[Rfam]
RNA sequence: AAGCCUGUAUGUGACUGGCGGAGCAUGGGGAACCAUGAGGGAGCAUAUGAGGGGCUAUAGCCGUACGCCUGGGCAGAGGUA
Dot-bracket structure: ...(.(((((((..(([[[[....((((....))))..))..))))))).)......(.(((...]]]]..))).).....